[Rfam]
RNA: tRNA
RNA sequence: GUCCGAAUAGCUCAGCUGGAUAGAGCAAUAGCCUUCUAAGCUAUCGGUCGGGGGUUCGAAUCCCUCUUCGGACG
Numbered sequence: 001g002u003c004c005g006a007a008u009a010g011c012u013c014a015g016c017u018g019g020a021u022a023g024a025g026c027a028a029u030a031g032c033c034u035u036c037u038a039a040g041c042u043a044u045c046g047g048u049c050g051g052g053g054g055u056u057c058g059a060a061u062c063c064c065u066c067u068u069c070g071g072a073c074g
Stems, first nucleotide, its partner, number of pairs: 001073007010026004028044005050066005